[Rfam]
RNA sequence: GGGUGUGGUGCGCACCGUACCACAGGCUUAGGGGAAGGUCGGGCCGCCUUCC
Numbered sequence: 001g002g003g004u005g006u007g008g009u010g011c012g013c014a015c016c017g018u019a020c021c022a023c024a025g026g027c028u029u030a031g032g033g034g035a036a037g038g039u040c041g042g043g044c045c046g047c048c049u050u051c052c
Stems, first nucleotide, its partner, number of pairs: 005023008033052007
Dot-bracket structure: ....((((((((...)))))))).........(((((((......)))))))

A member of the RNA family "nhaA-I RNA", 52 nucleotides long.
It is annotated as a riboswitch.
Rfam's curators write: Acidobacteria, Alphaproteobacteria, Betaproteobacteria and Gammaproteobacteria, Verrucomicrobia, cand. division NC10.